[Rfam]
RNA sequence: UGGCUUGGUUUCCUAGGGGUUGGACUCAGUGUACUCCACCUCCUCUCAGUUAAGUCUGUAGUAGAGAGGCAAGAGCACGUGUGUGGGAGAGGUGCUUACGAAAGGAGCCCUGCCUGGGCUGUCCUAGCCUCCCAUCU
Numbered sequence: 001u002g003g004c005u006u007g008g009u010u011u012c013c014u015a016g017g018g019g020u021u022g023g024a025c026u027c028a029g030u031g032u033a034c035u036c037c038a039c040c041u042c043c044u045c046u047c048a049g050u051u052a053a054g055u056c057u058g059u060a061g062u063a064g065a066g067a068g069g070c071a072a073g074a075g076c077a078c079g080u081g082u083g084u085g086g087g088a089g090a091g092g093u094g095c096u097u098a099c100g101a102a103a104g105g106a107g108c109c110c111u112g113c114c115u116g117g118g119c120u121g122u123c124c125u126a127g128c129c130u131c132c133c134a135u136c137u
Stems, first nucleotide, its partner, number of pairs: 002056006015044005021038004066131005072125002076117001085110003
RNA: Small Cajal body specific RNA 21
Organism: Cricetulus griseus